The record is a 52-nucleotide RNA sequence, which matches "nhaA-I RNA" in Rfam.
The base pairs follow the family's consensus structure, which is taken from published work.
[Rfam]
RNA sequence: GGGUCCGGGAUCAUUUUCCGGAGGGUGUUUAAGAUGGUCGGGCCGCCAUCCU
Numbered sequence: 001g002g003g004u005c006c007g008g009g010a011u012c013a014u015u016u017u018c019c020g021g022a023g024g025g026u027g028u029u030u031a032a033g034a035u036g037g038u039c040g041g042g043c044c045g046c047c048a049u050c051c052u
Base pairs, nucleotide, nucleotide: 005021006020007019008018009017010016031052033050034049036047037046038045
Acidobacteria, Alphaproteobacteria, Betaproteobacteria and Gammaproteobacteria, Verrucomicrobia, cand. division NC10.